[Rfam]
Shown here is a 96-nucleotide sequence from Amborella trichopoda, a member of the family "Small nucleolar RNA snoR26".
By type it is a C/D-box small nucleolar RNA.
Its family is annotated with nucleolus and RNA processing in the Gene Ontology.
The literature on the family includes a 2001 paper in RNA by Brown et al., "Multiple snoRNA gene clusters from Arabidopsis".
Nucleotides: 096
Stems, first nucleotide, its partner, number of pairs: 002096007
Number, partner (000 for none) and nucleotide at each position: 001000a002096g003095a004094g005093c006092a007091u008090c009000a010000a011000u012000g013000a014000g015000g016000a017000a018000u019000u020000a021000c022000u023000c024000u025000c026000a027000u028000u029000u030000g031000u032000u033000a034000u035000c036000c037000u038000u039000g040000c041000a042000c043000u044000u045000u046000g047000a048000u049000u050000u051000u052000u053000c054000c055000a056000u057000g058000a059000a060000g061000a062000a063000a064000u065000c066000u067000u068000a069000u070000g071000g072000g073000g074000a075000a076000g077000a078000a079000a080000a081000g082000u083000g084000u085000u086000c087000u088000g089000c090008g091007a092006u093005g094004c095003u096002u